[Rfam]
Nucleotides: 033
Base pairs, nucleotide, nucleotide: 002021003020004019005018010032011031012030
Number, partner (000 for none) and nucleotide at each position: 001000a002021a003020g004019g005018c006000g007000u008000a009000a010032c011031c012030u013000g014000a015000a016000a017000a018005g019004c020003c021002u022000a023000u024000a025000g026000a027000g028000u029000a030012a031011g032010g033000a
Rfam assigns this 33-nucleotide RNA from Mucilaginibacter oryzae to the family "DUF805b RNA".
The family's RNA type in Rfam is cis-regulatory element.
The family is grouped with related families in Rfam's "DUF805 clan".
Lineage of the source: Bacteria > Pseudomonadati > Bacteroidota > Sphingobacteriaceae > Mucilaginibacter.